[Rfam]
RNA sequence: GCGGGCCUGGCAUACUACUCCAUGGUGGGGAACUGGGCGAAGGUGCUU
Number, nucleotide and partner (000 for none) at each position: 001g000002c000003g000004g000005g000006c043007c042008u041009g000010g038011c037012a000013u035014a034015c000016u000017a000018c000019u030020c029021c028022a000023u000024g000025g000026u000027g000028g021029g020030g019031a000032a000033c000034u014035g013036g000037g011038c010039g000040a000041a008042g007043g006044u000045g000046c000047u000048u000
RNA: Hepatitis C virus stem-loop SL1412 RNA